[Rfam]
RNA: Small nucleolar RNA SNORA15
RNA sequence: GCAUGGAUGAAUUCUGCAUUAGCUUUCCUCAGUAGCUAAUGCGGUCAGACACUAUGCAAGAACAUAUUCCCUUUUCACACUCUGAUUGGUAUGCUUUUUGCAUGAAAAUGGGCAUGCCUGUGGAAGUGGGAUACAU
Numbered sequence: 001g002c003a004u005g006g007a008u009g010a011a012u013u014c015u016g017c018a019u020u021a022g023c024u025u026u027c028c029u030c031a032g033u034a035g036c037u038a039a040u041g042c043g044g045u046c047a048g049a050c051a052c053u054a055u056g057c058a059a060g061a062a063c064a065u066a067u068u069c070c071c072u073u074u075u076c077a078c079a080c081u082c083u084g085a086u087u088g089g090u091a092u093g094c095u096u097u098u099u100g101c102a103u104g105a106a107a108a109u110g111g112g113c114a115u116g117c118c119u120g121u122g123g124a125a126g127u128g129g130g131a132u133a134c135a136u
Base pairs, nucleotide, nucleotide: 001057002056003055004054005053006052014044015043016042017041018040019039070129071128072126073125074124075123076122077121078120088118089117090116091115092114093113094112095111096110